Overview: This 335-nucleotide part of an RNA from Algibacter luteus belongs to the Rfam family "Bacterial large subunit ribosomal RNA".

RNA sequence: CGAGAGAUUCAUGGCUAAGGAAUUAGGCAAAAUAGACUCGUAACUUCGGGAGAAGAGUCGCCACCCUUCGGGGUGGCCGCAGUGAAAAGGUCCAGGCGACUGUUUAUCAAAAACACAGGGCUAUGCUAAAUUGAAAGAUGAUGUAUAUGGCCUGACACCUGCCCGGUGCUGGAAGGUUAAGUGGAGUUGUUAGCUUCGGCAAAGCAAUCAAAUGAAGCCCCAGUAAACGGCGGCCGUAACUAUAACGGUCCUAAGGUAGCGAAAUUCCUUGUCGGGUAAGUUCCGACCUGCACGAAUGGUGCAACGAUCUGGACACUGUCUCAGCCAUGAGCUCG
Number, nucleotide and partner (000 for none) at each position: 001c335002g334003a333004g332005a000006g000007a000008u000009u330010c329011a328012u327013g326014g325015c324016u323017a000018a321019g320020g319021a000022a000023u000024u000025a000026g000027g000028c000029a000030a000031a000032a000033u000034a000035g059036a058037c057038u056039c055040g000041u000042a000043a000044c049045u000046u000047c000048g000049g044050g000051a000052g000053a000054a000055g039056a038057g037058u036059c035060g077061c076062c075063a074064c073065c072066c071067u000068u000069c000070g000071g066072g065073g064074u063075g062076g061077c060078c082079g000080c000081a000082g078083u000084g000085a000086a000087a000088a000089g000090g314091u313092c312093c311094a310095g309096g308097c306098g305099a000100c000101u115102g114103u113104u000105u000106a000107u000108c000109a000110a000111a000112a000113a103114c102115a101116c000117a000118g153119g152120g151121c150122u149123a148124u147125g146126c143127u000128a000129a000130a139131u138132u137133g000134a000135a000136a000137g132138a131139u130140g000141a000142u000143g126144u000145a000146u125147a124148u123149g122150g121151c120152c119153u118154g000155a000156c301157a300158c299159c298160u000161g231162c230163c229164c000165g000166g228167u227168g224169c223170u222171g221172g220173a000174a000175g219176g218177u217178u000179a000180a000181g213182u212183g000184g000185a000186g208187u207188u206189g205190u204191u000192a000193g200194c199195u000196u000197c000198g000199g194200c193201a000202a000203a000204g190205c189206a188207a187208u186209c000210a000211a000212a182213u181214g000215a000216a000217g177218c176219c175220c172221c171222a170223g169224u168225a000226a000227a167228c166229g163230g162231c161232g250233g249234c248235c247236g246237u245238a000239a000240c000241u000242a000243u000244a000245a237246c236247g235248g234249u233250c232251c255252u000253a000254a000255g251256g000257u000258a000259g000260c000261g288262a000263a000264a000265u000266u000267c000268c000269u000270u000271g287272u286273c285274g284275g283276g282277u000278a000279a000280g000281u000282u276283c275284c274285g273286a272287c271288c261289u000290g000291c000292a000293c000294g000295a000296a000297u000298g159299g158300u157301g156302c000303a000304a000305c098306g097307a000308u096309c095310u094311g093312g092313a091314c090315a000316c000317u000318g000319u020320c019321u018322c000323a016324g015325c014326c013327a012328u011329g010330a009331g000332c004333u003334c002335g001